[Rfam]
RNA sequence: GCGAGACGCGCUGUCCGCCGGACGAAAGCGACCGAUAAACUGUCCGCGGAUCGUGCCGGGCGCAGCUCCCGGACGGUCCGCCAAAUGAUCAGCCAGCAGCCGCUGCAACCCCAGGGAG
Numbered sequence: 001g002c003g004a005g006a007c008g009c010g011c012u013g014u015c016c017g018c019c020g021g022a023c024g025a026a027a028g029c030g031a032c033c034g035a036u037a038a039a040c041u042g043u044c045c046g047c048g049g050a051u052c053g054u055g056c057c058g059g060g061c062g063c064a065g066c067u068c069c070c071g072g073a074c075g076g077u078c079c080g081c082c083a084a085a086u087g088a089u090c091a092g093c094c095a096g097c098a099g100c101c102g103c104u105g106c107a108a109c110c111c112c113a114g115g116g117a118g
Base pairs, nucleotide, nucleotide: 048079049078050077051076052075053074056072057071058070059069060068094105095104096103097102
RNA: Streptomyces-metK RNA